This 194-nucleotide RNA sequence from Paenibacillus sp. OAS669 belongs to the Rfam family "c-di-AMP riboswitch aptamer (ydaO/yuaA leader)".
[Rfam]
RNA sequence: AAAUUCUGAUCGCUUAAUUUCCUUCUAUAGGAAAGCGGGGGAACCAACACAGUGAUAUCCGUUCGGUGUGAGAGCCGUCCGCAUAUCGCUUGGGGUGAAUCCGAAGGGUGCAAAGCUAGCUUGCGCCUGCCGGUAGGGCGACUCUCACCGCCCGAAUCCGACAGCUAACCUCGUCAGCGUGGAACAGACUUCUA
Numbered sequence: 001a002a003a004u005u006c007u008g009a010u011c012g013c014u015u016a017a018u019u020u021c022c023u024u025c026u027a028u029a030g031g032a033a034a035g036c037g038g039g040g041g042a043a044c045c046a047a048c049a050c051a052g053u054g055a056u057a058u059c060c061g062u063u064c065g066g067u068g069u070g071a072g073a074g075c076c077g078u079c080c081g082c083a084u085a086u087c088g089c090u091u092g093g094g095g096u097g098a099a100u101c102c103g104a105a106g107g108g109u110g111c112a113a114a115g116c117u118a119g120c121u122u123g124c125g126c127c128u129g130c131c132g133g134u135a136g137g138g139c140g141a142c143u144c145u146c147a148c149c150g151c152c153c154g155a156a157u158c159c160g161a162c163a164g165c166u167a168a169c170c171u172c173g174u175c176a177g178c179g180u181g182g183a184a185c186a187g188a189c190u191u192c193u194a
Stems, first nucleotide, its partner, number of pairs: 011179004018034006035174006045092002093159003101133003136153004
Dot-bracket structure: ..........((((...((((((.....))))))((((((....((............................................))(((.....(((...........................)))..((((..........))))...))).........)))))).))))...............

Lineage of the source: Bacteria > Bacillati > Caryophanales > Paenibacillaceae > Paenibacillus.